[Rfam]
RNA sequence: GGGCAAAUACCCAAGUCUGGCUGAAGGGACUGGUCUUGAAAACCAGCAGGGGCUUCACGGCCCGCGGGGGUUCGAAUCCCUCUUUGUUUU
Number, nucleotide and partner (000 for none) at each position: 001g089002g088003g087004c086005a085006a084007a083008u000009a000010c028011c027012c026013a000014a000015g000016u000017c000018u000019g000020g000021c000022u000023g000024a000025a000026g012027g011028g010029a000030c046031u045032g044033g043034u042035c000036u000037u000038g000039a000040a000041a000042a034043c033044c032045a031046g030047c000048a000049g000050g000051g000052g000053c000054u000055u000056c000057a000058c000059g000060g000061c000062c000063c000064g000065c000066g082067g081068g080069g079070g078071u000072u000073c000074g000075a000076a000077u000078c070079c069080c068081u067082c066083u007084u006085u005086g004087u003088u002089u001090u000
This 90-nucleotide RNA from Mycoplasma todarodis belongs to the Rfam family "tRNA". The match comes from Rfam's covariance-model search (46 bits).